[Rfam]
RNA sequence: UGGCAUGCCGAAGGCUCGCAACAAGGCCAUGCACGGAGAGCUCGUCUCUCACUACCCCAGCCUUGCGGAAAGUCCCUGGACCACCAUCAGCAGCGAGUGCUGGCAGUGACCGCCACGUGGUCCUGCUGCAGGCCCAGACCUCCAUGUAGCCAAGAAGCCCCUCCUCUCUCCCAGGGGCCGAGCCAUGGUCAUGGUGCUGAUCCGUGCAAUCCACUUGUCCCAGCCAAAGUGAUGCGAGUCACCUCACAAACAGAGGUGGAACUGAACAGGGCUCACUCCCGGGAUGUC
Numbered sequence: 001u002g003g004c005a006u007g008c009c010g011a012a013g014g015c016u017c018g019c020a021a022c023a024a025g026g027c028c029a030u031g032c033a034c035g036g037a038g039a040g041c042u043c044g045u046c047u048c049u050c051a052c053u054a055c056c057c058c059a060g061c062c063u064u065g066c067g068g069a070a071a072g073u074c075c076c077u078g079g080a081c082c083a084c085c086a087u088c089a090g091c092a093g094c095g096a097g098u099g100c101u102g103g104c105a106g107u108g109a110c111c112g113c114c115a116c117g118u119g120g121u122c123c124u125g126c127u128g129c130a131g132g133c134c135c136a137g138a139c140c141u142c143c144a145u146g147u148a149g150c151c152a153a154g155a156a157g158c159c160c161c162u163c164c165u166c167u168c169u170c171c172c173a174g175g176g177g178c179c180g181a182g183c184c185a186u187g188g189u190c191a192u193g194g195u196g197c198u199g200a201u202c203c204g205u206g207c208a209a210u211c212c213a214c215u216u217g218u219c220c221c222a223g224c225c226a227a228a229g230u231g232a233u234g235c236g237a238g239u240c241a242c243c244u245c246a247c248a249a250a251c252a253g254a255g256g257u258g259g260a261a262c263u264g265a266a267c268a269g270g271g272c273u274c275a276c277u278c279c280c281g282g283g284a285u286g287u288c
Base pairs, nucleotide, nucleotide: 002288003287004286005285006284008282009281010280014239015238016237017236018235019234022065023064024063025062026061027060036050037049038048039047040046071273072272074271075270076269077268089101090100091099092098103116106113107112120198125195126194137192147185149183150182157178158177159176160175161174162173240258241257242256243255244254245253
The family of this 288-nucleotide RNA from Eptatretus burgeri is "RNase MRP".
The literature on the family includes a 1993 paper in FASEB J by Schmitt et al., "Secondary structure of RNase MRP RNA as predicted by phylogenetic comparison".